[Rfam]
Selenocysteine insertion sequence 4: a 38-nucleotide RNA sequence from Desulfosporosinus orientis. Rfam classes the family as a cis-regulatory element. The literature on the family includes a 2001 paper in Arch Microbiol by Graentzdoerffer et al., "Molecular analysis of the grd operon coding for genes of the glycine reductase and of the thioredoxin system from Clostridium sticklandii". The match comes from Rfam's covariance-model search (44 bits). The organism belongs to Desulfosporosinus orientis, within Bacteria.
RNA sequence: GGAACCUGUACACGUUGCGGCGCAACGAUGACAAGAGA
Number, nucleotide and partner (000 for none) at each position: 001g000002g000003a000004a000005c000006c030007u000008g000009u000010a000011c000012a000013c027014g026015u025016u024017g023018c022019g000020g000021c000022g018023c017024a016025a015026c014027g013028a000029u000030g006031a000032c000033a000034a000035g000036a000037g000038a000